Annotation: A member of the RNA family "mir-2114 microRNA precursor family" from Homo sapiens, 80 nucleotides long. Rfam's curators put it in the seed alignment. The family has 5 seed sequences and 40 matches in Rfam 15.1. Gene Ontology terms of the family: RISC complex and miRNA-mediated post-transcriptional gene silencing. The organism belongs to Homo, within Eukaryota.

RNA sequence: CCUCCAUGCUCCUAGUCCCUUCCUUGAAGCGGUCGGAUAAUCACAUGACGAGCCUCAAGCAAGGGACUUCAAGCUGGUGG
Numbered sequence: 001c002c003u004c005c006a007u008g009c010u011c012c013u014a015g016u017c018c019c020u021u022c023c024u025u026g027a028a029g030c031g032g033u034c035g036g037a038u039a040a041u042c043a044c045a046u047g048a049c050g051a052g053c054c055u056c057a058a059g060c061a062a063g064g065g066a067c068u069u070c071a072a073g074c075u076g077g078u079g080g
Stems, first nucleotide, its partner, number of pairs: 001080002004077003008074003014068008023059005029054001031053001033051003